The record is a 115-nucleotide RNA sequence from Populus deltoides, which matches "Plastid-psbA-1 3UTR RNA" in Rfam.
It scores 90 bits against the family's covariance model.
Lineage of the source: Eukaryota > Mesangiospermae > eudicotyledons > rosids > Populus.
Nucleotides: 115
Base pairs, nucleotide, nucleotide: 008023009022010021011020012019061115062114063113064112065111066110067109069107070106071105072104073103075101076100077099079097080096081095082094083093
Number, partner (000 for none) and nucleotide at each position: 001000u002000u003000g004000a005000a006000g007000u008023u009022c010021c011020a012019u013000c014000u015000a016000u017000c018000a019012a020011u021010g022009g023008a024000u025000a026000a027000u028000u029000c030000g031000u032000u033000a034000g035000u036000g037000u038000u039000a040000g041000u042000c043000u044000a045000g046000a047000u048000c049000u050000a051000g052000u053000u054000u055000a056000g057000u058000a059000a060000a061115a062114a063113a064112c065111g066110a067109g068000c069107a070106a071105u072104a073103u074000a075101a076100g077099c078000c079097u080096u081095c082094u083093u084000u085000a086000a087000a088000u089000a090000a091000g092000a093083a094082a095081g096080a097079g098000g099077g100076c101075u102000u103073a104072u105071a106070u107069u108000a109067c110066u111065c112064g113063u114062u115061u